[Rfam]
RNA sequence: UAUUUGCACAAUGGGUCUAUUGACAAGUCUGUCAGUAGCGAGAAAUACCAUCUGACCUGAUCUGGGUAAUGCCAGCGUAGGAAUGUGUUAAGACAAUCGU
Numbered sequence: 001u002a003u004u005u006g007c008a009c010a011a012u013g014g015g016u017c018u019a020u021u022g023a024c025a026a027g028u029c030u031g032u033c034a035g036u037a038g039c040g041a042g043a044a045a046u047a048c049c050a051u052c053u054g055a056c057c058u059g060a061u062c063u064g065g066g067u068a069a070u071g072c073c074a075g076c077g078u079a080g081g082a083a084u085g086u087g088u089u090a091a092g093a094c095a096a097u098c099g100u
Stems, first nucleotide, its partner, number of pairs: 006088005011051004016045001017038008056081004062075004
RNA: TPP riboswitch aptamer (THI element)
Organism: Lactococcus cremoris